A member of the RNA family "mir-275 microRNA precursor family" from Habropoda laboriosa, 93 nucleotides long. Rfam links the family to the GO terms miRNA-mediated post-transcriptional gene silencing and RISC complex. A search with the family's covariance model found it, with a score of 73 bits. On this family, see Winter et al., Nucleic Acids Res 2007: "Anopheles gambiae miRNAs as actors of defence reaction against Plasmodium invasion". The source organism's lineage runs through Eukaryota, Bilateria, Pancrustacea, Insecta and Habropoda.

[Rfam]
RNA sequence: GUGUCGUUCGCAACACGCGUUACUCGGGUACUUCAGGCUGUGCUAAUUUCAAGUCAGUCAGGUACCUGAAGUAGCGCGCGCUGCGGCGAAACC
Numbered sequence: 001g002u003g004u005c006g007u008u009c010g011c012a013a014c015a016c017g018c019g020u021u022a023c024u025c026g027g028g029u030a031c032u033u034c035a036g037g038c039u040g041u042g043c044u045a046a047u048u049u050c051a052a053g054u055c056a057g058u059c060a061g062g063u064a065c066c067u068g069a070a071g072u073a074g075c076g077c078g079c080g081c082u083g084c085g086g087c088g089a090a091a092c093c
Stems, first nucleotide, its partner, number of pairs: 009085004014080001016078007030063002033061001036059004